[Rfam]
RNA: ALIL pseudoknot
RNA sequence: UGCUUAUUUUGCGCAGGCGGAGAUCGACCGCCACUGGAAAAAAUAAUGCCACUUAUGGAACGUCUGAGUGGUACGCACGGGGUCGGGCCGGUAUGUCGCGAGCUGGAUAUUGCCACG
Numbered sequence: 001u002g003c004u005u006a007u008u009u010u011g012c013g014c015a016g017g018c019g020g021a022g023a024u025c026g027a028c029c030g031c032c033a034c035u036g037g038a039a040a041a042a043a044u045a046a047u048g049c050c051a052c053u054u055a056u057g058g059a060a061c062g063u064c065u066g067a068g069u070g071g072u073a074c075g076c077a078c079g080g081g082g083u084c085g086g087g088c089c090g091g092u093a094u095g096u097c098g099c100g101a102g103c104u105g106g107a108u109a110u111u112g113c114c115a116c117g
Stems, first nucleotide, its partner, number of pairs: 016032005078117002081114002089112002092109003096105001098103001